[Rfam]
RNA sequence: UGUAAACUUUAGGAGUAGCUAUUAAGUUAGUUUGAGAAAAAUCCUUAGAACCUGAUUUGGUUAAUACCAACGUAGGAAAAAGUUAUUUAGAUGUA
Numbered sequence: 001u002g003u004a005a006a007c008u009u010u011a012g013g014a015g016u017a018g019c020u021a022u023u024a025a026g027u028u029a030g031u032u033u034g035a036g037a038a039a040a041a042u043c044c045u046u047a048g049a050a051c052c053u054g055a056u057u058u059g060g061u062u063a064a065u066a067c068c069a070a071c072g073u074a075g076g077a078a079a080a081a082g083u084u085a086u087u088u089a090g091a092u093g094u095a
Stems, first nucleotide, its partner, number of pairs: 006083005011045004016039001017032005051076004057070004
Source information: This 95-nucleotide sequence from Polaribacter sp. IC066 belongs to the Rfam family "TPP riboswitch aptamer (THI element)". The match comes from Rfam's covariance-model search (72 bits). Lineage of the source: Bacteria > Pseudomonadati > Bacteroidota > Flavobacteriaceae > Polaribacter.